The family of this 73-nucleotide sequence from Scytalopus superciliaris is "mir-122 microRNA precursor family". It scores 85 bits against the family's covariance model. The organism belongs to Scytalopus, within Eukaryota. Rfam 15.1 lists 666 matches to the family in 636 species.
RNA sequence: CAGGGCUCUGGAGUGUGACAAUGGUGUUUGUGGCCGGCCUGUCAAACGCCAUUAUCACACUAAAUAGCUACUG
Numbered sequence: 001c002a003g004g005g006c007u008c009u010g011g012a013g014u015g016u017g018a019c020a021a022u023g024g025u026g027u028u029u030g031u032g033g034c035c036g037g038c039c040u041g042u043c044a045a046a047c048g049c050c051a052u053u054a055u056c057a058c059a060c061u062a063a064a065u066a067g068c069u070a071c072u073g
Stems, first nucleotide, its partner, number of pairs: 012061007020053011
Rfam links the family to the GO terms miRNA-mediated post-transcriptional gene silencing and RISC complex.